The family of this 84-nucleotide RNA sequence from Pongo abelii is "mir-571 microRNA precursor family". Its family is annotated with RISC complex and miRNA-mediated post-transcriptional gene silencing in the Gene Ontology. Taxonomically the source falls in Pongo (Eukaryota, Craniata, Teleostomi, Mammalia). A search with the family's covariance model found it, with a score of 63 bits. Pairs were carried over by alignment from the consensus structure, which was predicted with RNAalifold.

Nucleotides: 084
Base pairs, nucleotide, nucleotide: 001084002083003082004081006079008077012073013072014071015070016069017068019065021064022063023062025059027057032051033050034049035048037046038045
Number, partner (000 for none) and nucleotide at each position: 001084a002083g003082u004081a005000a006079g007000a008077c009000a010000a011000a012073g013072c014071u015070u016069a017068g018000u019065g020000u021064g022063c023062c024000u025059u026000g027057u028000g029000u030000u031000a032051u033050c034049u035048g036000c037046a038045g039000c040000c041000a042000u043000g044000u045038c046037u047000a048035u049034g050033g051032g052000c053000u054000c055000u056000u057027g058000a059025g060000u061000u062023g063022g064021c065019c066000u067000c068017c069016u070015g071014g072013g073012u074000g075000a076000g077008g078000g079006c080000c081004u082003g083002c084001u